[Rfam]
RNA sequence: AGAAAUUUGAGGGGAGCUGCCAUUAGUACGAGAGGACCGUGGCGGACGCACCACUAGUGUACCUGUUGUGGCGCCAGCUGCACCGCAGGGUAGCUAUGUGCGGAAGUGAUAAGCGCUGAAAGCAUAUAAGCGCGAAACACACCCCAAGAUGAGAUUUCUUUUAAGGGUCGUUCGAGAUGAGGACGUUGAUAGGCUGCAGGUGUAAAGGCAGUAAUGUCAUAGCCGAGCAGUACUAAUUACCCGUAA
Numbered sequence: 001a002g003a004a005a006u007u008u009g010a011g012g013g014g015a016g017c018u019g020c021c022a023u024u025a026g027u028a029c030g031a032g033a034g035g036a037c038c039g040u041g042g043c044g045g046a047c048g049c050a051c052c053a054c055u056a057g058u059g060u061a062c063c064u065g066u067u068g069u070g071g072c073g074c075c076a077g078c079u080g081c082a083c084c085g086c087a088g089g090g091u092a093g094c095u096a097u098g099u100g101c102g103g104a105a106g107u108g109a110u111a112a113g114c115g116c117u118g119a120a121a122g123c124a125u126a127u128a129a130g131c132g133c134g135a136a137a138c139a140c141a142c143c144c145c146a147a148g149a150u151g152a153g154a155u156u157u158c159u160u161u162u163a164a165g166g167g168u169c170g171u172u173c174g175a176g177a178u179g180a181g182g183a184c185g186u187u188g189a190u191a192g193g194c195u196g197c198a199g200g201u202g203u204a205a206a207g208g209c210a211g212u213a214a215u216g217u218c219a220u221a222g223c224c225g226a227g228c229a230g231u232a233c234u235a236a237u238u239a240c241c242c243g244u245a246a
Base pairs, nucleotide, nucleotide: 001159002158003157004156005155006154007153008152011145012144013143014142017045018044019043020042021041022040023039047102048101049100050099051098055096056095057094062089063088064087065086066085067082068081069080070079071078072077106140107139108138113133114132115131116130117129165242166241167240168239169185170184171183172182173181190235191234192233193231194230195229196228197227199224200223203219207218208217209216210215
Dot-bracket structure: ((((((((..((((..(((((((...............))))))).(((((...(((....(((((((((((....))))))..)))))....))).)))))...(((....(((((...........)))))....))).))))......)))))))).....(((((((((.......)))))....((((((((.((..(...((((....)))))...))..))))).)))...))))....
The record is a 246-nucleotide part of an RNA from Thermaurantimonas aggregans, which matches "Bacterial large subunit ribosomal RNA" in Rfam. The match comes from Rfam's covariance-model search (2724 bits). The source organism's lineage runs through Bacteria, Pseudomonadati, Flavobacteriia, Flavobacteriales and Thermaurantimonas. The base pairs follow the family's consensus structure, which is taken from published work.